[Rfam]
A member of the RNA family "Small nucleolar RNA SNORA15" from Catharus ustulatus, 138 nucleotides long. Its family is annotated with nucleolus and RNA processing in the Gene Ontology. The literature on the family includes a 2001 paper in EMBO J by Huttenhofer et al., "RNomics: an experimental approach that identifies 201 candidates for novel, small, non-messenger RNAs in mouse". About the family: ACA15 is a member of the H/ACA class of snoRNA that guide the sites of modification of uridines to pseudouridines. The match comes from Rfam's covariance-model search (62 bits).
Nucleotides: 138
Stems, first nucleotide, its partner, number of pairs: 001057006014044005072132002074129006091120009
Number, partner (000 for none) and nucleotide at each position: 001057g002056c003055a004054u005053g006052g007000a008000u009000g010000a011000a012000u013000u014044c015043u016042g017041c018040a019000c020000c021000a022000g023000c024000u025000u026000u027000c028000c029000c030000c031000a032000g033000u034000a035000g036000c037000u038000g039000a040018u041017g042016c043015a044014g045000u046000c047000a048000g049000a050000c051000a052006c053005c054004a055003u056002g057001c058000c059000a060000g061000a062000g063000c064000a065000a066000a067000u068000u069000c070000c071000c072132u073131u074129u075128u076127u077126u078125c079124c080000c081000c082000a083000c084000u085000g086000u087000g088000c089000c090000u091120g092119g093118u094117g095116u096115g097114c098113u099112u100000u101000u102000u103000g104000a105000u106000g107000g108000g109000a110000u111000u112099g113098g114097g115096c116095a117094u118093g119092c120091c121000c122000u123000u124079g125078g126077a127076a128075g129074g130000g131073g132072a133000a134000u135000a136000c137000a138000u